[Rfam]
RNA sequence: GAACCGCUCCAACGGCUUCCUGACGGAGCGGGGAUUUACCAAUGGAGCA
Numbered sequence: 001g002a003a004c005c006g007c008u009c010c011a012a013c014g015g016c017u018u019c020c021u022g023a024c025g026g027a028g029c030g031g032g033g034a035u036u037u038a039c040c041a042a043u044g045g046a047g048c049a
Stems, first nucleotide, its partner, number of pairs: 004031007013022002015048003019045002
RNA: SAM/SAH riboswitch aptamer